[Rfam]
glmS glucosamine-6-phosphate activated ribozyme aptamer: a 203-nucleotide RNA from Lachnotalea sp. AF33-28. The family's RNA type in Rfam is riboswitch. Rfam describes the family as follows. This entry contains a glucosamine-6-phosphate activated ribozyme that is found in the mRNA for GlmS. GlmS is an enzyme that uses fructose-6-phosphate and glutamine to generate glucosamine-6-phosphate. Pairs were carried over by alignment from the consensus structure, which is taken from published work.
RNA sequence: GAAAUCAAAGAAGCGCCAGACGCCUUUUUACGGACGGAAGCCAUGUCCGGGAGACAAAAGAUCCCGCGGAAAUGGUGUGAAAAGGACGACGAGGUGAAGAGUGAUCGAAUUUUCGGCGGAUGCUCUUCCGUACCGCUCCGGGUGCGGGAUAUACCGGCAAAUAUGCAGGUGACUGCAAAACAAAUACGGUAUAACCGGAGAGU
Numbered sequence: 001g002a003a004a005u006c007a008a009a010g011a012a013g014c015g016c017c018a019g020a021c022g023c024c025u026u027u028u029u030a031c032g033g034a035c036g037g038a039a040g041c042c043a044u045g046u047c048c049g050g051g052a053g054a055c056a057a058a059a060g061a062u063c064c065c066g067c068g069g070a071a072a073u074g075g076u077g078u079g080a081a082a083a084g085g086a087c088g089a090c091g092a093g094g095u096g097a098a099g100a101g102u103g104a105u106c107g108a109a110u111u112u113u114c115g116g117c118g119g120a121u122g123c124u125c126u127u128c129c130g131u132a133c134c135g136c137u138c139c140g141g142g143u144g145c146g147g148g149a150u151a152u153a154c155c156g157g158c159a160a161a162u163a164u165g166c167a168g169g170u171g172a173c174u175g176c177a178a179a180a181c182a183a184a185u186a187c188g189g190u191a192u193a194a195c196c197g198g199a200g201a202g203u
Base pairs, nucleotide, nucleotide: 024085025084026083027082028081029080096128097127098126099125100124105116106115107114108113129146130145131144132143133142134141150193151192152191153190154189155188156187164177165176166175167174168173